[Rfam]
RNA sequence: AUCGGCCUUGCUGGUGAGCGUCCAAGGAUGUUCGCAGGGCUAUAGUCGCUCUAGACUUUUGACCACGGAUGUACUGGCACUGGUGAAAGAAGCGAUGUGAGGAAGGUCGGGUUUGCCCGGCCUUUUUUGUU
Numbered sequence: 001a002u003c004g005g006c007c008u009u010g011c012u013g014g015u016g017a018g019c020g021u022c023c024a025a026g027g028a029u030g031u032u033c034g035c036a037g038g039g040c041u042a043u044a045g046u047c048g049c050u051c052u053a054g055a056c057u058u059u060u061g062a063c064c065a066c067g068g069a070u071g072u073a074c075u076g077g078c079a080c081u082g083g084u085g086a087a088a089g090a091a092g093c094g095a096u097g098u099g100a101g102g103a104a105g106g107u108c109g110g111g112u113u114u115g116c117c118c119g120g121c122c123u124u125u126u127u128u129g130u131u
Stems, first nucleotide, its partner, number of pairs: 004041006016033005045096006055084003060079002063077003097130014